The family of this 98-nucleotide RNA sequence from alpha proteobacterium U9-1i is "Bacterial small signal recognition particle RNA". For this family Rfam cites "Kinship in the SRP RNA family" (Rosenblad et al., RNA Biol, 2009). Taxonomically the source falls in Alphaproteobacteria (Bacteria, Pseudomonadati, Pseudomonadota). Rfam describes the family as follows. The signal recognition particle (SRP) is a universally conserved ribonucleoprotein involved in the co-translational targeting of proteins to membranes.

[Rfam]
RNA sequence: CGCAGGCAGGCGGCGGACGGUCGCCCCGCCAACCCGGUCAGGUCCGGAAGGAAGCAGCCGUAACGGGUUGCGUUCGGGUCGUCGUCCUGUCUGCACUU
Number, nucleotide and partner (000 for none) at each position: 001c000002g000003c000004a092005g091006g090007c089008a088009g000010g085011c084012g083013g082014c081015g080016g000017a000018c076019g075020g074021u000022c072023g071024c000025c067026c066027c065028g064029c000030c000031a000032a000033c000034c000035c060036g059037g058038u057039c000040a000041g000042g000043u052044c051045c050046g000047g000048a000049a000050g045051g044052a043053a000054g000055c000056a000057g038058c037059c036060g035061u000062a000063a000064c028065g027066g026067g025068u000069u000070g000071c023072g022073u000074u020075c019076g018077g000078g000079u000080c015081g014082u013083c012084g011085u010086c000087c000088u008089g007090u006091c005092u004093g000094c000095a000096c000097u000098u000